[Rfam]
RNA sequence: CUUGAUCGAGCCGAGCCACAGCGGCUCACCCGCACGGUCCUGGCCGUAGGCGGCGAGGAGCGCCUGGGCCUC
Numbered sequence: 001c002u003u004g005a006u007c008g009a010g011c012c013g014a015g016c017c018a019c020a021g022c023g024g025c026u027c028a029c030c031c032g033c034a035c036g037g038u039c040c041u042g043g044c045c046g047u048a049g050g051c052g053g054c055g056a057g058g059a060g061c062g063c064c065u066g067g068g069c070c071u072c
Stems, first nucleotide, its partner, number of pairs: 014026004031068001033066001035062002040057002044053003
This 72-nucleotide RNA sequence from Streptomyces alboflavus belongs to the Rfam family "ASpks TB sRNA". The base pairs follow the family's consensus structure, which is taken from published work. Rfam classes the family as an antisense RNA. NCBI's taxonomy places the organism under Bacteria, Actinomycetota, Actinomycetes, Streptomycetaceae, Streptomyces.